[Rfam]
RNA sequence: CUCAAGGUGAGGGGUGCUAUCUGUGAUUGAGGGGCAUGGUCAAUGGAAUUGUCUCACACAGAAAUCGCACCCGUCACCUUGGCCU
Numbered sequence: 001c002u003c004a005a006g007g008u009g010a011g012g013g014g015u016g017c018u019a020u021c022u023g024u025g026a027u028u029g030a031g032g033g034g035c036a037u038g039g040u041c042a043a044u045g046g047a048a049u050u051g052u053c054u055c056a057c058a059c060a061g062a063a064a065u066c067g068c069a070c071c072c073g074u075c076a077c078c079u080u081g082g083c084c085u
Stems, first nucleotide, its partner, number of pairs: 003081005009075002012072006020062006028056005